About this RNA
The family of this 129-nucleotide RNA sequence is "atpB RNA". It is annotated as a cis-regulatory element.
RNA sequence: CUGUGAUCGUUGCGCUGAUGUGCGACGGAGUCCGUUGCGAUCGCAGAGUAGUUUUCAGACGUCCAUCGCACCGUGCACAACACACGCGUGCACGGCCCGAACACGGGAGAGAACGCUGAGCGUUACAAC
Numbered sequence: 001c002u003g004u005g006a007u008c009g010u011u012g013c014g015c016u017g018a019u020g021u022g023c024g025a026c027g028g029a030g031u032c033c034g035u036u037g038c039g040a041u042c043g044c045a046g047a048g049u050a051g052u053u054u055u056c057a058g059a060c061g062u063c064c065a066u067c068g069c070a071c072c073g074u075g076c077a078c079a080a081c082a083c084a085c086g087c088g089u090g091c092a093c094g095g096c097c098c099g100a101a102c103a104c105g106g107g108a109g110a111g112a113a114c115g116c117u118g119a120g121c122g123u124u125a126c127a128a129c
Base pairs, nucleotide, nucleotide: 001046002045003044004043005042006041007040008039009038010037012035071095072094073093074092075091076090077089078088